[Rfam]
RNA sequence: AACUACCGGCUAAGCCGGUAGUUCCAUAGAGCCUUCUGGCGGUCAUGAAGAAAAAAGAAAUCCUUUGAUUACUAUUGAAAUGCGGUCUGCCAACUGCAUCACAAUAAAAUCAAAGG
Number, nucleotide and partner (000 for none) at each position: 001a023002a022003c021004u020005a019006c018007c017008g016009g015010c014011u000012a000013a000014g010015c009016c008017g007018g006019u005020a004021g003022u002023u001024c000025c000026a000027u000028a043029g000030a000031g040032c039033c038034u000035u000036c000037u000038g033039g032040c031041g000042g000043u028044c000045a000046u000047g000048a000049a000050g000051a000052a000053a000054a000055a000056a000057g000058a000059a000060a000061u000062c116063c115064u114065u113066u112067g111068a110069u109070u108071a105072c000073u103074a000075u000076u101077g100078a099079a000080a000081u098082g097083c096084g095085g094086u093087c000088u000089g000090c000091c000092a000093a086094c085095u084096g083097c082098a081099u078100c077101a076102c000103a073104a000105u071106a000107a000108a070109a069110u068111c067112a066113a065114a064115g063116g062
Record summary:
STnc490 Hfq binding RNA: a 116-nucleotide RNA from Fibrobacter sp. UWB4. A search with the family's covariance model found it, with a score of 56 bits. The family has 76 seed sequences and 285 matches in Rfam 15.1.